[Rfam]
RNA sequence: ACUUUAGUUUACUAGGGUUCCGUCGGCGCAUGUCGGGUCUGGUCCAAGAGUAAACCGUUCCCGAGCACGAGGGGGACGACACGGAAGGAUAAAAACCUGGGAGAU
Numbered sequence: 001a002c003u004u005u006a007g008u009u010u011a012c013u014a015g016g017g018u019u020c021c022g023u024c025g026g027c028g029c030a031u032g033u034c035g036g037g038u039c040u041g042g043u044c045c046a047a048g049a050g051u052a053a054a055c056c057g058u059u060c061c062c063g064a065g066c067a068c069g070a071g072g073g074g075g076a077c078g079a080c081a082c083g084g085a086a087g088g089a090u091a092a093a094a095a096c097c098u099g100g101g102a103g104a105u
Stems, first nucleotide, its partner, number of pairs: 007055006015045002020042002022039001023036005056078007080100001082103001086098003
A member of the RNA family "Guanidine-I riboswitch aptamer" from Cohnella faecalis, 105 nucleotides long. Taxonomically the source falls in Cohnella (Bacteria, Bacillati, Bacillota, Paenibacillaceae). Pairs were carried over by alignment from the consensus structure. Its family is annotated with regulation of gene expression in the Gene Ontology. From the family's description: This family represents a conserved RNA structure found upstream of the ykkC and yxkD genes in Bacillus subtilis and related genes in other bacteria.